[Rfam]
RNA sequence: CACCACCACCUUCCUACAAACGGAUCGUCCGGCACGUUCCUGCCGGUAGAAGGGGCCACAC
Numbered sequence: 001c002a003c004c005a006c007c008a009c010c011u012u013c014c015u016a017c018a019a020a021c022g023g024a025u026c027g028u029c030c031g032g033c034a035c036g037u038u039c040c041u042g043c044c045g046g047u048a049g050a051a052g053g054g055g056c057c058a059c060a061c
Stems, first nucleotide, its partner, number of pairs: 010053003014049003029046006
Shown here is a 61-nucleotide sequence from Streptomyces sp. F001, a member of the family "msiK RNA". The family's consensus secondary structure is taken from published work. The match comes from Rfam's covariance-model search (52 bits). It is annotated as a cis-regulatory element.